About this RNA:
Hairpin ribozyme 2 from viruses-like metatranscriptomes: a 257-nucleotide sequence. The family's consensus secondary structure is taken from published work. Rfam links the family to the GO term RNA nuclease activity. The sequence is in the family's curated seed alignment. About the family: Hairpin-meta ribozymes were recognised in metatranscriptomic sequences of viruses-like organisms, it was proved by co-transcriptional assays that hairpin-meta1 and hairpin-meta2 non-coding RNA (ncRNAs) are catalytically active and it is suggested that they likely replicate as circular single-stranded RNAs.

RNA sequence: UAAACAGGGAAUUGUUACCUGGGGCUGUCCGUUCUACCGUGAGAUGAGUGCACGAGGGGUCCCAAGACUGCUUCAAUCGGCCGAAUUGCGUAAGACCGACGGCAAGGUACAUCUUUGAGAGUCUUGUCGCACAGGGACGUGCAAAUCCGGAGAAUGGGGUGGAACUCCUCUGAAAUCCGGUAAGCUUCAUAGAGCGGGAAGCCCAAACAGAAUGAAACACGCUGGCAGUUGUCGAGCUGGUGGUAUAUUAUUUCUGA
Numbered sequence: 001u002a003a004a005c006a007g008g009g010a011a012u013u014g015u016u017a018c019c020u021g022g023g024g025c026u027g028u029c030c031g032u033u034c035u036a037c038c039g040u041g042a043g044a045u046g047a048g049u050g051c052a053c054g055a056g057g058g059g060u061c062c063c064a065a066g067a068c069u070g071c072u073u074c075a076a077u078c079g080g081c082c083g084a085a086u087u088g089c090g091u092a093a094g095a096c097c098g099a100c101g102g103c104a105a106g107g108u109a110c111a112u113c114u115u116u117g118a119g120a121g122u123c124u125u126g127u128c129g130c131a132c133a134g135g136g137a138c139g140u141g142c143a144a145a146u147c148c149g150g151a152g153a154a155u156g157g158g159g160u161g162g163a164a165c166u167c168c169u170c171u172g173a174a175a176u177c178c179g180g181u182a183a184g185c186u187u188c189a190u191a192g193a194g195c196g197g198g199a200a201g202c203c204c205a206a207a208c209a210g211a212a213u214g215a216a217a218c219a220c221g222c223u224g225g226c227a228g229u230u231g232u233c234g235a236g237c238u239g240g241u242g243g244u245a246u247a248u249u250a251u252u253u254c255u256g257a
Base pairs, nucleotide, nucleotide: 005021006020007019008018022204023203024202025201030196031195032194033193034192035191036190038054039053040052041051059138060137061136062135063134077099078098079097080096100129101128102127103126104125105124209255210254211253212252220242221241222240223239224238225237226236